[Rfam]
RNA sequence: GAGAGGAGGCCCCAAAUGCUGCGCAGCAGCAUUGCUGUAAAGGUGCCGACGACAUGCCGCCGAAGCGCAGCUGAGGGGGCGAUACGACAG
Numbered sequence: 001g002a003g004a005g006g007a008g009g010c011c012c013c014a015a016a017u018g019c020u021g022c023g024c025a026g027c028a029g030c031a032u033u034g035c036u037g038u039a040a041a042g043g044u045g046c047c048g049a050c051g052a053c054a055u056g057c058c059g060c061c062g063a064a065g066c067g068c069a070g071c072u073g074a075g076g077g078g079g080c081g082a083u084a085c086g087a088c089a090g
Base pairs, nucleotide, nucleotide: 008047009046010045012043013042016032017031018030019029020028021027056080057079058078060076061075064072065071

GA-cis RNA: a 90-nucleotide RNA. It is one of the family's seed sequences.